[Rfam]
The record is a 138-nucleotide RNA sequence from Anabarilius grahami, which matches "Small nucleolar RNA SNORA84" in Rfam.
Its family is annotated with nucleolus and RNA processing in the Gene Ontology.
The literature on the family includes a 2002 paper in Curr Biol by Marker et al., "Experimental RNomics: identification of 140 candidates for small non-messenger RNAs in the plant Arabidopsis thaliana".
Pairs were carried over by alignment from the consensus structure, which was predicted with WAR.
A search with the family's covariance model found it, with a score of 76 bits.
NCBI's taxonomy places the organism under Eukaryota, Bilateria, Actinopteri, Ostariophysi, Anabarilius.
The family has 28 seed sequences and 757 matches in Rfam 15.1.
By type it is an H/ACA-box small nucleolar RNA.
RNA sequence: GCCUGGUGGUUCCUUGAGACAGCUCGUCUGUGCUGAUCCUUGAGGGGUUUUUUGACAGGCACAUAUUUAUCUCUGCGAUUUAAUGCUUGGAAGUUGCCAAUUUCAUGCAUCUUCCACAGCCCGGUUGCAGGAACAUUU
Numbered sequence: 001g002c003c004u005g006g007u008g009g010u011u012c013c014u015u016g017a018g019a020c021a022g023c024u025c026g027u028c029u030g031u032g033c034u035g036a037u038c039c040u041u042g043a044g045g046g047g048u049u050u051u052u053u054g055a056c057a058g059g060c061a062c063a064u065a066u067u068u069a070u071c072u073c074u075g076c077g078a079u080u081u082a083a084u085g086c087u088u089g090g091a092a093g094u095u096g097c098c099a100a101u102u103u104c105a106u107g108c109a110u111c112u113u114c115c116a117c118a119g120c121c122c123g124g125u126u127g128c129a130g131g132a133a134c135a136u137u138u
Base pairs, nucleotide, nucleotide: 001060002059003058004057008050010047011046012045013044014043015042016041017040019037020035021034022033023032073130075128076127077126078125079124080123085120086119088116089115090114092112093111095109096108097107